[Rfam]
A member of the RNA family "mir-308 microRNA precursor family" from Bactrocera dorsalis, 61 nucleotides long. Gene Ontology terms of the family: RISC complex and miRNA-mediated post-transcriptional gene silencing. The organism belongs to Bactrocera dorsalis complex, within Eukaryota. A search with the family's covariance model found it, with a score of 66 bits.

RNA sequence: CACGCAGUAUAUUUUUGUGUUAUGUGUACUUAACAAUCAUAUCACAGGAUUAUACUGUGAG
Dot-bracket structure: (.(((((((((.(((((((.((((.............)))).))))))).))))))))).)

For this family Rfam cites "Identification of microRNAs expressed in two mosquito vectors, Aedes albopictus and Culex quinquefasciatus" (Skalsky et al., BMC Genomics, 2010).